[Rfam]
RNA sequence: GCGAUGAGCUAAUUGAAUAAGCCGGCGGGCGCUCCUUUAUUGGAAAUGCACGAUGUGGCGUGCAGCCUGCCGCCUCAAUACGCAAGACCCUCUGUUUCAGGGGGUC
Numbered sequence: 001g002c003g004a005u006g007a008g009c010u011a012a013u014u015g016a017a018u019a020a021g022c023c024g025g026c027g028g029g030c031g032c033u034c035c036u037u038u039a040u041u042g043g044a045a046a047u048g049c050a051c052g053a054u055g056u057g058g059c060g061u062g063c064a065g066c067c068u069g070c071c072g073c074c075u076c077a078a079u080a081c082g083c084a085a086g087a088c089c090c091u092c093u094g095u096u097u098c099a100g101g102g103g104g105u106c
Stems, first nucleotide, its partner, number of pairs: 013078004023072008033042001047064002050061003086106009